[Rfam]
The family of this 168-nucleotide sequence from Peptostreptococcus anaerobius is "Lysine riboswitch aptamer". It scores 93 bits against the family's covariance model. Pairs were carried over by alignment from the consensus structure, which is taken from published work. Lineage of the source: Bacteria > Bacillati > Bacillota > Peptostreptococcales > Peptostreptococcus anaerobius.
RNA sequence: AUAGAAGGUAGAGGCGCGGGUCUUAAGAGUAACUGGAGCAAGGGUUAAAGCAUCCCCAGUGAAAGGAUUAUCCGCCGAAGCGUAAGAUUUGCUUUAGGGUCUUAUUGCUGGGUGUACAUAUAAUAUGUGUGCAACUGUCACGGGAAACUGUGUUGAGCUAUCAUUUGA
Numbered sequence: 001a002u003a004g005a006a007g008g009u010a011g012a013g014g015c016g017c018g019g020g021u022c023u024u025a026a027g028a029g030u031a032a033c034u035g036g037a038g039c040a041a042g043g044g045u046u047a048a049a050g051c052a053u054c055c056c057c058a059g060u061g062a063a064a065g066g067a068u069u070a071u072c073c074g075c076c077g078a079a080g081c082g083u084a085a086g087a088u089u090u091g092c093u094u095u096a097g098g099g100u101c102u103u104a105u106u107g108c109u110g111g112g113u114g115u116a117c118a119u120a121u122a123a124u125a126u127g128u129g130u131g132c133a134a135c136u137g138u139c140a141c142g143g144g145a146a147a148c149u150g151u152g153u154u155g156a157g158c159u160a161u162c163a164u165u166u167g168a
Stems, first nucleotide, its partner, number of pairs: 007162005016075006024067001032060005038054001079109004083104008110136002113133008139152005